[Rfam]
A member of the RNA family "Class I RNA from Dictyostelium" from Dictyostelium purpureum, 85 nucleotides long. On this family, see Aspegren et al., Nucleic Acids Res 2004: "Novel non-coding RNAs in Dictyostelium discoideum and their expression during development". Pairs were carried over by alignment from the consensus structure, which is taken from published work. Rfam's curators write: Dictyostelium Class I RNA was first reported for Aspegren et al. 2004 in Dictyostelium discoideum.
RNA sequence: GAAUUCCUUACAGCAAUGAAAUGAUGAUCUGGAGAGGCCCACUCAUUAGAGAACCAUGGGUCUUUCCGGGAAAAAUUGGAUUCUG
Number, nucleotide and partner (000 for none) at each position: 001g083002a082003a081004u080005u079006c078007c000008u000009u000010a000011c000012a000013g000014c000015a000016a000017u000018g000019a000020a000021a000022u000023g000024a000025u000026g000027a000028u000029c000030u000031g000032g000033a000034g000035a000036g000037g000038c000039c000040c000041a000042c000043u000044c000045a000046u000047u000048a000049g000050a000051g000052a000053a000054c000055c000056a000057u000058g000059g000060g000061u000062c000063u000064u000065u000066c000067c000068g000069g000070g000071a000072a000073a000074a000075a000076u000077u000078g006079g005080a004081u003082u002083c001084u000085g000